[Rfam]
RNA sequence: GGGUGGAGGACAAGGUUCAAUCAGACACAGCCCUCGCCUUUUACUAGGGCUGUCCGUGGACCUUGUUCAUACAAUUCACCCUUACCAAUUUUUCAGCAUCCAGCUCGUCUCUGGGAA
Numbered sequence: 001g002g003g004u005g006g007a008g009g010a011c012a013a014g015g016u017u018c019a020a021u022c023a024g025a026c027a028c029a030g031c032c033c034u035c036g037c038c039u040u041u042u043a044c045u046a047g048g049g050c051u052g053u054c055c056g057u058g059g060a061c062c063u064u065g066u067u068c069a070u071a072c073a074a075u076u077c078a079c080c081c082u083u084a085c086c087a088a089u090u091u092u093u094c095a096g097c098a099u100c101c102a103g104c105u106c107g108u109c110u111c112u113g114g115g116a117a
Stems, first nucleotide, its partner, number of pairs: 003079004009067011027053008099115005
This 117-nucleotide sequence from Plicatura crispa belongs to the Rfam family "U5 spliceosomal RNA".
For this family Rfam cites "Domain analysis of human U5 RNA. Cap trimethylation, protein binding, and spliceosome assembly" (Hinz et al., J Biol Chem, 1996).
Lineage of the source: Eukaryota > Dikarya > Basidiomycota > Agaricomycetidae > Plicatura crispa.
Pairs were carried over by alignment from the consensus structure, which is taken from published work.